[Rfam]
RNA: Archaeal small subunit ribosomal RNA, nucleotides 887 to 1466
RNA sequence: UGGCGGGGGAGCACCACAAGGGGUGAAGCUUGCGGUUUAAUUGGAGUCAACGCCGGAAACCUUACCGGGGGCGACAGCAGGAUGAAGGCCAGGCUGACGACCUUGCCAGACGAGCUGAGAGGAGGUGCAUGGCCGUCGCCGGCUCGUGCCGUGAGGUGUCCUGUUAAGUCAGGGAACGAGCGAGACCCCCGCCCCUAGUUGCUACCCAGCCCUUCGGGGCUGGGGCACUCUAGGGGGACUGCCGGCGAUAAGCCGGAGGAAGGUGGGGGCUACGGCAGGUCAGUAUGCCCCGAAACCCCCGGGCUACACGCGAGCUGCAAUGGCGGGGACAGCGGGUUCCGACCCCGAAAGGGGGAGGUAAUCCCUUAAACCCCGCCUCAGUAGGAAUCGAGGGCUGCAACUCGCCCUCGUGAACGUGGAAUCCCUAGUAACCGCGUGUCACCAACGCGCGGUGAAUACGUCCCUGCUCCUUGCACACACCGCCCGUCGCUCCACCCGAGGGAGGCCUAGGUGAGGCCUCCUGCCGACGAGGUGGGAGGUCGAACCUGGGCCUCCCAAGGGGGGAGAAGUCGUAACAAGG
Numbered sequence: 001u002g003g004c005g006g007g008g009g010a011g012c013a014c015c016a017c018a019a020g021g022g023g024u025g026a027a028g029c030u031u032g033c034g035g036u037u038u039a040a041u042u043g044g045a046g047u048c049a050a051c052g053c054c055g056g057a058a059a060c061c062u063u064a065c066c067g068g069g070g071g072c073g074a075c076a077g078c079a080g081g082a083u084g085a086a087g088g089c090c091a092g093g094c095u096g097a098c099g100a101c102c103u104u105g106c107c108a109g110a111c112g113a114g115c116u117g118a119g120a121g122g123a124g125g126u127g128c129a130u131g132g133c134c135g136u137c138g139c140c141g142g143c144u145c146g147u148g149c150c151g152u153g154a155g156g157u158g159u160c161c162u163g164u165u166a167a168g169u170c171a172g173g174g175a176a177c178g179a180g181c182g183a184g185a186c187c188c189c190c191g192c193c194c195c196u197a198g199u200u201g202c203u204a205c206c207c208a209g210c211c212c213u214u215c216g217g218g219g220c221u222g223g224g225g226c227a228c229u230c231u232a233g234g235g236g237g238a239c240u241g242c243c244g245g246c247g248a249u250a251a252g253c254c255g256g257a258g259g260a261a262g263g264u265g266g267g268g269g270c271u272a273c274g275g276c277a278g279g280u281c282a283g284u285a286u287g288c289c290c291c292g293a294a295a296c297c298c299c300c301g302g303g304c305u306a307c308a309c310g311c312g313a314g315c316u317g318c319a320a321u322g323g324c325g326g327g328g329a330c331a332g333c334g335g336g337u338u339c340c341g342a343c344c345c346c347g348a349a350a351g352g353g354g355g356a357g358g359u360a361a362u363c364c365c366u367u368a369a370a371c372c373c374c375g376c377c378u379c380a381g382u383a384g385g386a387a388u389c390g391a392g393g394g395c396u397g398c399a400a401c402u403c404g405c406c407c408u409c410g411u412g413a414a415c416g417u418g419g420a421a422u423c424c425c426u427a428g429u430a431a432c433c434g435c436g437u438g439u440c441a442c443c444a445a446c447g448c449g450c451g452g453u454g455a456a457u458a459c460g461u462c463c464c465u466g467c468u469c470c471u472u473g474c475a476c477a478c479a480c481c482g483c484c485c486g487u488c489g490c491u492c493c494a495c496c497c498g499a500g501g502g503a504g505g506c507c508u509a510g511g512u513g514a515g516g517c518c519u520c521c522u523g524c525c526g527a528c529g530a531g532g533u534g535g536g537a538g539g540u541c542g543a544a545c546c547u548g549g550g551c552c553u554c555c556c557a558a559g560g561g562g563g564g565a566g567a568a569g570u571c572g573u574a575a576c577a578a579g580g
Base pairs, nucleotide, nucleotide: 001477002476003474004473005472007471008470009469010468011467012466013465016461017460020425021424022423023422024421025318027316028315029314030313031312032311033310034309035307036306041056042055043054044053065302066301067300068299069298070297071296075117076116077115078114080111087107088106089105091103092102093101121291122290124289125288126287127286130285131284132280133279134278135276136275137274138273142181143180144179145178146177147176148157149156150155160173161172162171163170187268188267189266190265192236193235194234195233196232197231198230202225203224206223207222208221209220210219211218212217239259240258242256243255244254245253246252322377323376324375325374326373327372328371334365335364336363339358340357343354344353345352346351384415389410390409391408392407393406394405395404431453432452433451434450435449436448437447438446480579482576485572486571488569490566491565492564493563495561496560497559500556501555502554503553504552505551506550507549508548509547510546511545512544515541516540517539518538519537520536521535522534523533524532